[Rfam]
RNA: TPP riboswitch aptamer (THI element)
RNA sequence: CGCCAUUAGUCGGGGAGCCAUAAGGCUGAGAUCGCAUUGCGAGACCCGUUGAACCUGAUUCAGUUAAUACUGACGUAGGGAACUAAUCCAAUCAUCGC
Numbered sequence: 001c002g003c004c005a006u007u008a009g010u011c012g013g014g015g016a017g018c019c020a021u022a023a024g025g026c027u028g029a030g031a032u033c034g035c036a037u038u039g040c041g042a043g044a045c046c047c048g049u050u051g052a053a054c055c056u057g058a059u060u061c062a063g064u065u066a067a068u069a070c071u072g073a074c075g076u077a078g079g080g081a082a083c084u085a086a087u088c089c090a091a092u093c094a095u096c097g098c
Stems, first nucleotide, its partner, number of pairs: 006086005011048004017026003033041003054079004060073004